[Rfam]
Shown here is a 56-nucleotide RNA sequence, a member of the family "Streptococcus sRNA SpF59 (ldcC RNA)". The family's RNA type in Rfam is small RNA.
RNA sequence: UGACCGUUCCGCAAGAUCGGAAACUAAGGCCAUACGGACAGCCGGGCAACUGCCGA
Number, nucleotide and partner (000 for none) at each position: 001u048002g047003a000004c046005c045006g024007u023008u022009c020010c019011g000012c000013a000014a000015g000016a000017u000018c000019g010020g009021a000022a008023a007024c006025u000026a000027a000028g000029g000030c000031c000032a000033u000034a000035c000036g000037g000038a000039c000040a000041g000042c000043c000044g000045g005046g004047c002048a001049a000050c000051u000052g000053c000054c000055g000056a000

It is one of the family's seed sequences.